[Rfam]
RNA sequence: GUUGCAAGUUCAAGGCCAUAGUAGAAGCGCUCAUGGCUCAACCCUGUCAGAUUCCAAUGAAUCUGAGAAUUCUGCU
Numbered sequence: 001g002u003u004g005c006a007a008g009u010u011c012a013a014g015g016c017c018a019u020a021g022u023a024g025a026a027g028c029g030c031u032c033a034u035g036g037c038u039c040a041a042c043c044c045u046g047u048c049a050g051a052u053u054c055c056a057a058u059g060a061a062u063c064u065g066a067g068a069a070u071u072c073u074g075c076u
Base pairs, nucleotide, nucleotide: 014043015042020076021075022074023073024072025071026070027039029037048065049064050063051062052061053060054059

Mammalian CPEB3 ribozyme: a 76-nucleotide RNA sequence from Alligator mississippiensis. The base pairs follow the family's consensus structure, which is taken from published work.